mraW RNA: a 109-nucleotide RNA sequence from Actinokineospora spheciospongiae. It is annotated as a cis-regulatory element. It scores 67 bits against the family's covariance model. The family's consensus secondary structure is taken from published work.
[Rfam]
RNA sequence: GGAUUCGGGUGCCGCCAGGCCUCGGUCCGCUCGCCUUCGGCCUUGGCGCACCUUCCCCGGUGCCAAGUCCGACGAGCGGGCGGGGACCUGGCGGCAUCCGUCGAUCCGG
Numbered sequence: 001g002g003a004u005u006c007g008g009g010u011g012c013c014g015c016c017a018g019g020c021c022u023c024g025g026u027c028c029g030c031u032c033g034c035c036u037u038c039g040g041c042c043u044u045g046g047c048g049c050a051c052c053u054u055c056c057c058c059g060g061u062g063c064c065a066a067g068u069c070c071g072a073c074g075a076g077c078g079g080g081c082g083g084g085g086a087c088c089u090g091g092c093g094g095c096a097u098c099c100g101u102c103g104a105u106c107c108g109g
Stems, first nucleotide, its partner, number of pairs: 010096007018088002021085003025081008037072004042067008